[Rfam]
RNA sequence: GGGUGAUAAGAUUAUGAAUAGUAUUCUUUUCCCUAUUGGUUUGAUUGGCUGGUAUGGUGGCCCUAAUACUGAAAUGAAUCUGAUCAUCC
Numbered sequence: 001g002g003g004u005g006a007u008a009a010g011a012u013u014a015u016g017a018a019u020a021g022u023a024u025u026c027u028u029u030u031c032c033c034u035a036u037u038g039g040u041u042u043g044a045u046u047g048g049c050u051g052g053u054a055u056g057g058u059g060g061c062c063c064u065a066a067u068a069c070u071g072a073a074a075u076g077a078a079u080c081u082g083a084u085c086a087u088c089c
Stems, first nucleotide, its partner, number of pairs: 002088004043064001047062004

A member of the RNA family "Small nucleolar RNA Z102/R77" from Triticum aestivum, 89 nucleotides long.
The organism belongs to Triticum, within Eukaryota.
Its family is annotated with nucleolus and RNA processing in the Gene Ontology.
The base pairs follow the family's consensus structure, which was predicted with PFOLD.